[Rfam]
RNA sequence: CAAACGUGGAUACUCCUGGGAGGUCACUCUCCCUGGGCUCUGUCCAGGUGGCGUAGGGGAGCGUAGGGUUCUGCCGCAUGAUGUACAGUCCAUUUCCAUCACGCCUUGAGUCUGUGCCUGCAUAUUCCUACAGAUUCUCAGAGUCCUGUGGACGAUGACAGAGGAGACAAACCAUGCGGGAAACAGCU
Number, nucleotide and partner (000 for none) at each position: 001c108002a107003a106004a000005c103006g102007u101008g045009g044010a043011u042012a041013c000014u000015c037016c036017u035018g000019g030020g029021a028022g027023g000024u000025c000026a000027c022028u021029c020030u019031c000032c000033c000034u000035g017036g016037g015038c000039u000040c000041u012042g011043u010044c009045c008046a000047g000048g099049u098050g097051g096052c000053g000054u000055a000056g000057g000058g091059g090060a089061g086062c000063g084064u083065a082066g079067g000068g000069u000070u000071c000072u000073g000074c000075c000076g000077c000078a000079u066080g000081a000082u065083g064084u063085a000086c061087a000088g000089u060090c059091c058092a000093u000094u000095u000096c051097c050098a049099u048100c000101a007102c006103g005104c000105c000106u003107u002108g001109a000110g000111u000112c000113u000114g000115u000116g000117c180118c179119u178120g177121c176122a175123u174124a000125u000126u000127c000128c000129u000130a000131c000132a000133g000134a000135u165136u164137c163138u162139c161140a000141g000142a000143g153144u152145c151146c150147u000148g000149u000150g146151g145152a144153c143154g000155a000156u000157g000158a000159c000160a000161g139162a138163g137164g136165a135166g000167a000168c000169a000170a000171a000172c000173c000174a123175u122176g121177c120178g119179g118180g117181a000182a000183a000184c000185a000186g000187c000188u000
RNA: Small nucleolar RNA SNORA73 family
Organism: Ailuropoda melanoleuca